The record is a 562-nucleotide part of an RNA from Sulfobacillus acidophilus, which matches "Bacterial small subunit ribosomal RNA" in Rfam.
Rfam's curators put it in the seed alignment.
The family's consensus secondary structure is taken from published work.
The literature on the family includes a 2001 paper in Science by Yusupov et al., "Crystal structure of the ribosome at 5.5 A resolution".
The organism belongs to Sulfobacillus acidophilus, within Bacteria.
[Rfam]
RNA sequence: GCUAUGGAGAGUUUGAUCCUGGCUCAGGACGAACGCUGGCGGCGUGCGUAAUACAUGCAAGUCGAGCGGUCGACGGCUCUUCGGAGGCGUCGGCAGCGGCGGACGGGUGAGGAACACGUGAGUAACCGGGCGUCCGGUGGGGGAUAUCGGGCCGAAAGGCGCGGCAAUCCCGCAUGCGCCCCGGGCGGCGCCAGCCGCCGGGGGGAAAGGCCUUCGGGUCGCCGGACGGGGGGCUCGCGGCCCAUUAGCUAGUUGGGGGGGUAACGGCCUCCCAAGGCGACGAUGGGUAGCCGGCCUGAGAGGGUGAUCGGCCACACUGGGACUGAGACACGGCCCAGACUCCUACGGGAGGCAGCAGUAGGGAAUCUUCCACAAUGGGCGCAAGCCUGAUGGAGCAACGCCGCGUGAGUGAAGACGGCCUUCGGGUUGUAAAGCUCUGUCUGUCGGGACGAGGACCGCGCCGGACGGCGCGGGGGGACGGUACCGGCGGAGGAAGCCCCUGCAAACUACGUGCCAGCAGCCGCGGUAAGACGUAGGGGGCAAGCGUUGUCCGGAAUUACUG
Numbered sequence: 001g002c003u004a005u006g007g008a009g010a011g012u013u014u015g016a017u018c019c020u021g022g023c024u025c026a027g028g029a030c031g032a033a034c035g036c037u038g039g040c041g042g043c044g045u046g047c048g049u050a051a052u053a054c055a056u057g058c059a060a061g062u063c064g065a066g067c068g069g070u071c072g073a074c075g076g077c078u079c080u081u082c083g084g085a086g087g088c089g090u091c092g093g094c095a096g097c098g099g100c101g102g103a104c105g106g107g108u109g110a111g112g113a114a115c116a117c118g119u120g121a122g123u124a125a126c127c128g129g130g131c132g133u134c135c136g137g138u139g140g141g142g143g144a145u146a147u148c149g150g151g152c153c154g155a156a157a158g159g160c161g162c163g164g165c166a167a168u169c170c171c172g173c174a175u176g177c178g179c180c181c182c183g184g185g186c187g188g189c190g191c192c193a194g195c196c197g198c199c200g201g202g203g204g205g206a207a208a209g210g211c212c213u214u215c216g217g218g219u220c221g222c223c224g225g226a227c228g229g230g231g232g233g234c235u236c237g238c239g240g241c242c243c244a245u246u247a248g249c250u251a252g253u254u255g256g257g258g259g260g261g262u263a264a265c266g267g268c269c270u271c272c273c274a275a276g277g278c279g280a281c282g283a284u285g286g287g288u289a290g291c292c293g294g295c296c297u298g299a300g301a302g303g304g305u306g307a308u309c310g311g312c313c314a315c316a317c318u319g320g321g322a323c324u325g326a327g328a329c330a331c332g333g334c335c336c337a338g339a340c341u342c343c344u345a346c347g348g349g350a351g352g353c354a355g356c357a358g359u360a361g362g363g364a365a366u367c368u369u370c371c372a373c374a375a376u377g378g379g380c381g382c383a384a385g386c387c388u389g390a391u392g393g394a395g396c397a398a399c400g401c402c403g404c405g406u407g408a409g410u411g412a413a414g415a416c417g418g419c420c421u422u423c424g425g426g427u428u429g430u431a432a433a434g435c436u437c438u439g440u441c442u443g444u445c446g447g448g449a450c451g452a453g454g455a456c457c458g459c460g461c462c463g464g465a466c467g468g469c470g471c472g473g474g475g476g477g478a479c480g481g482u483a484c485c486g487g488c489g490g491a492g493g494a495a496g497c498c499c500c501u502g503c504a505a506a507c508u509a510c511g512u513g514c515c516a517g518c519a520g521c522c523g524c525g526g527u528a529a530g531a532c533g534u535a536g537g538g539g540g541c542a543a544g545c546g547u548u549g550u551c552c553g554g555a556a557u558u559a560c561u562g
Stems, first nucleotide, its partner, number of pairs: 009025005027552004032548006039404006045397002047362001052360003056357003061100003066097002069094002073090003077086003107315003117239007126232002131228007139173001141171002147164003151160003179204004184199002187196003209220003241287003248278003253275008290312004294305004317338005340351004368394001370393003376389005407437004417428004441493001442489006451479001456473003496541005507536005517524002